[Rfam]
Rfam assigns this 99-nucleotide RNA from alpha proteobacterium AAP81b to the family "Glycine riboswitch aptamer". Lineage of the source: Bacteria > Pseudomonadati > Pseudomonadota > Alphaproteobacteria.

RNA sequence: GGCGCCAGCGCGGGAGAGUGCGGACGUGGCAACACGCGCCGCCGCCGAAGGAGCAAGCCGCCCCCGGAAUCUCUCAGGCCCAAGGACCGCGCCGGCGUA
Numbered sequence: 001g002g003c004g005c006c007a008g009c010g011c012g013g014g015a016g017a018g019u020g021c022g023g024a025c026g027u028g029g030c031a032a033c034a035c036g037c038g039c040c041g042c043c044g045c046c047g048a049a050g051g052a053g054c055a056a057g058c059c060g061c062c063c064c065c066g067g068a069a070u071c072u073c074u075c076a077g078g079c080c081c082a083a084g085g086a087c088c089g090c091g092c093c094g095g096c097g098u099a
Stems, first nucleotide, its partner, number of pairs: 006094001008092006020042004044079003047075002051073003058066001